[Rfam]
RNA sequence: UUCCGAUCCCUCCGACCACUCCACUUGAUGGUCGACGGGGACGAACCAAAGGAGGAUCACCCACCCGAGCGCUCUCGGUGCGGCAGUGUGGAGACCUGCCGUAAGGCACGGGGAAUAUCACUUUCCCCGCUGCGAGACCGGCGAUGCAGAGGCAGACCGGUCAGAAGCGAUAGUAAUGGCU
Numbered sequence: 001u002u003c004c005g006a007u008c009c010c011u012c013c014g015a016c017c018a019c020u021c022c023a024c025u026u027g028a029u030g031g032u033c034g035a036c037g038g039g040g041a042c043g044a045a046c047c048a049a050a051g052g053a054g055g056a057u058c059a060c061c062c063a064c065c066c067g068a069g070c071g072c073u074c075u076c077g078g079u080g081c082g083g084c085a086g087u088g089u090g091g092a093g094a095c096c097u098g099c100c101g102u103a104a105g106g107c108a109c110g111g112g113g114a115a116u117a118u119c120a121c122u123u124u125c126c127c128c129g130c131u132g133c134g135a136g137a138c139c140g141g142c143g144a145u146g147c148a149g150a151g152g153c154a155g156a157c158c159g160g161u162c163a164g165a166a167g168c169g170a171u172a173g174u175a176a177u178g179g180c181u
Stems, first nucleotide, its partner, number of pairs: 007040004013034006065078004070169003073165002079103008088095002106133003109129005136162006145154003
Shown here is a 181-nucleotide RNA sequence, a member of the family "malK-I RNA". It is annotated as a cis-regulatory element. The sequence is in the family's curated seed alignment.